[Rfam]
RNA sequence: GGGUCGAGUGAAGUGCCGAUACUGUAGGGGCCGACUCCGGUAAAGGGUCGAUCCUGUC
Numbered sequence: 001g002g003g004u005c006g007a008g009u010g011a012a013g014u015g016c017c018g019a020u021a022c023u024g025u026a027g028g029g030g031c032c033g034a035c036u037c038c039g040g041u042a043a044a045g046g047g048u049c050g051a052u053c054c055u056g057u058c
Base pairs, nucleotide, nucleotide: 027055028054029053030052032050033049034048035047036046037045
RNA: psbNH RNA